Shown here is a 124-nucleotide RNA, a member of the family "DUF3800-I RNA". Rfam describes the family as follows. Actinobacteria, Firmicutes, Fusobacteria, Proteobacteria (1 example), Tenericutes (2 examples). By type it is a small RNA. It is one of the family's seed sequences. The base pairs follow the family's consensus structure, which is taken from published work.
[Rfam]
RNA sequence: UGUUAUACCGGAGAGAAAUCUUGUCAGGUCUACACGCAAGUGUCGAACGAGAGUUUAAUCGUAUUCUUAAAUACGACGCCUUGUGUGGAAAACUAUCCUUUAUGGAUAGUUUUUUUGUGCAAUA
Numbered sequence: 001u002g003u004u005a006u007a008c009c010g011g012a013g014a015g016a017a018a019u020c021u022u023g024u025c026a027g028g029u030c031u032a033c034a035c036g037c038a039a040g041u042g043u044c045g046a047a048c049g050a051g052a053g054u055u056u057a058a059u060c061g062u063a064u065u066c067u068u069a070a071a072u073a074c075g076a077c078g079c080c081u082u083g084u085g086u087g088g089a090a091a092a093c094u095a096u097c098c099u100u101u102a103u104g105g106a107u108a109g110u111u112u113u114u115u116u117g118u119g120c121a122a123u124a
Base pairs, nucleotide, nucleotide: 008028009027011025013022014021033087034086035085036084037083038082042080044078045077046055047054048053059076060075061074062073063072064071088114089113090112091111092110093109094108095107096106097105